[Rfam]
RNA sequence: CUUUGUAUUUUUCCACAGCUUUCUUGAACUGCAUAUAUUUGAAAACUCACACCAUAUAUAACCAAUUAUUAUUAUUGGAGGUGAAAAUAAAAUAAAAAAUUGUUGCGGUUCAAUAAGGCUGUGGGAAGAUACAGAUA
Numbered sequence: 001c002u003u004u005g006u007a008u009u010u011u012u013c014c015a016c017a018g019c020u021u022u023c024u025u026g027a028a029c030u031g032c033a034u035a036u037a038u039u040u041g042a043a044a045a046c047u048c049a050c051a052c053c054a055u056a057u058a059u060a061a062c063c064a065a066u067u068a069u070u071a072u073u074a075u076u077g078g079a080g081g082u083g084a085a086a087a088u089a090a091a092a093u094a095a096a097a098a099a100u101u102g103u104u105g106c107g108g109u110u111c112a113a114u115a116a117g118g119c120u121g122u123g124g125g126a127a128g129a130u131a132c133a134g135a136u137a
Stems, first nucleotide, its partner, number of pairs: 003134005013124003017120006024113004029108005

The record is a 137-nucleotide sequence from Nicotiana tabacum, which matches "MIR396 microRNA precursor family" in Rfam. The base pairs follow the family's consensus structure, which was predicted with WAR. NCBI's taxonomy places the organism under Eukaryota, Streptophyta, Euphyllophyta, Spermatophyta, Nicotiana. For this family Rfam cites "Computational identification of plant microRNAs and their targets, including a stress-induced miRNA" (Jones-Rhoades and Bartel, Mol Cell, 2004).